[Rfam]
RNA sequence: UGCCGCAUUGGUCGAUUGGGAAACUCAUCAAUAAUAUUCUAAAGACCGAGACAAGUUUUCGUUAUCAAUGGCGGGCCGCGCCUUCGGGUAUUCCGAUUGAUCGGAACGGCGGAUUACAAAGAUAGCGAGACACUCAAAUCCUGUAAUAAGGAGUUUCGUCUUAUUCCACCAGUGCGGCUCCCUAU
Numbered sequence: 001u002g003c004c005g006c007a008u009u010g011g012u013c014g015a016u017u018g019g020g021a022a023a024c025u026c027a028u029c030a031a032u033a034a035u036a037u038u039c040u041a042a043a044g045a046c047c048g049a050g051a052c053a054a055g056u057u058u059u060c061g062u063u064a065u066c067a068a069u070g071g072c073g074g075g076c077c078g079c080g081c082c083u084u085c086g087g088g089u090a091u092u093c094c095g096a097u098u099g100a101u102c103g104g105a106a107c108g109g110c111g112g113a114u115u116a117c118a119a120a121g122a123u124a125g126c127g128a129g130a131c132a133c134u135c136a137a138a139u140c141c142u143g144u145a146a147u148a149a150g151g152a153g154u155u156u157c158g159u160c161u162u163a164u165u166c167c168a169c170c171a172g173u174g175c176g177g178c179u180c181c182c183u184a185u
Stems, first nucleotide, its partner, number of pairs: 055131003059128008069118002076112004080089003091106006
RNA: Bacteroidales-1 6S-Bacteroidales RNA suggested
Organism: Dysgonamonadaceae bacterium